[Rfam]
RNA sequence: AGGAGGAACAACCCCAGUGGCUGCAGCAGCUCUGGAGCCCUGGAGUCAGCCCCCAUAGUAACUCCAGAGCUCUCCGUCUGCAGGGCCUGGAGGCUCCGGGGCAGG
Numbered sequence: 001a002g003g004a005g006g007a008a009c010a011a012c013c014c015c016a017g018u019g020g021c022u023g024c025a026g027c028a029g030c031u032c033u034g035g036a037g038c039c040c041u042g043g044a045g046u047c048a049g050c051c052c053c054c055a056u057a058g059u060a061a062c063u064c065c066a067g068a069g070c071u072c073u074c075c076g077u078c079u080g081c082a083g084g085g086c087c088u089g090g091a092g093g094c095u096c097c098g099g100g101g102c103a104g105g
Stems, first nucleotide, its partner, number of pairs: 002097004009089002012085003019078003023074001028071009040058003

Overview: Rfam assigns this 105-nucleotide sequence from Canis lupus to the family "mir-8834 microRNA precursor family". Taxonomically the source falls in Canis lupus (Eukaryota, Sarcopterygii, Laurasiatheria, Canis). The match comes from Rfam's covariance-model search (68 bits). Its family is annotated with miRNA-mediated post-transcriptional gene silencing and RISC complex in the Gene Ontology. The family's consensus secondary structure was predicted with RNAalifold.